Shown here is a 72-nucleotide sequence, a member of the family "tRNA". The sequence is in the family's curated seed alignment.
[Rfam]
RNA sequence: UAGAAUUUGGUGUAAUUGGGAGCACGAAGAGUUUUGGAUUCUUAGGAGUAGGUUCGAUUCCUAUAGUUCUAG
Numbered sequence: 001u002a003g004a005a006u007u008u009g010g011u012g013u014a015a016u017u018g019g020g021a022g023c024a025c026g027a028a029g030a031g032u033u034u035u036g037g038a039u040u041c042u043u044a045g046g047a048g049u050a051g052g053u054u055c056g057a058u059u060c061c062u063a064u065a066g067u068u069c070u071a072g
Base pairs, nucleotide, nucleotide: 001071002070003069004068005067006066007065010025011024012023013022027043028042029041030040031039048064049063050062051061052060